[Rfam]
RNA sequence: GAGUGAGGUAGAGGUGCGAUCUUUAUUAGUUCUUUAUCGAGCUUGAGCAAGCGAAGAAGUAAAGAAGAAGGAAAUAUCGCCGAAGUUUGAAGUAUGCUCGAAUGCUUCAUGCUGGGUCUGCAGUGAAUAAUUGCAGGACUGUCUCAGUUGGUUUUCCUAGCCAUCUGAGUUGUGCUAUCUCAAGA
Numbered sequence: 001g002a003g004u005g006a007g008g009u010a011g012a013g014g015u016g017c018g019a020u021c022u023u024u025a026u027u028a029g030u031u032c033u034u035u036a037u038c039g040a041g042c043u044u045g046a047g048c049a050a051g052c053g054a055a056g057a058a059g060u061a062a063a064g065a066a067g068a069a070g071g072a073a074a075u076a077u078c079g080c081c082g083a084a085g086u087u088u089g090a091a092g093u094a095u096g097c098u099c100g101a102a103u104g105c106u107u108c109a110u111g112c113u114g115g116g117u118c119u120g121c122a123g124u125g126a127a128u129a130a131u132u133g134c135a136g137g138a139c140u141g142u143c144u145c146a147g148u149u150g151g152u153u154u155u156c157c158u159a160g161c162c163a164u165c166u167g168a169g170u171u172g173u174g175c176u177a178u179c180u181c182a183a184g185a
Stems, first nucleotide, its partner, number of pairs: 006180006016080005022074003031065007084113003088109008114140002117137008143169005

The family of this 185-nucleotide RNA from Lysinibacillus composti is "Lysine riboswitch aptamer". The base pairs follow the family's consensus structure, which is taken from published work. The match comes from Rfam's covariance-model search (103 bits). Taxonomically the source falls in Lysinibacillus (Bacteria, Bacillota, Bacilli, Caryophanales).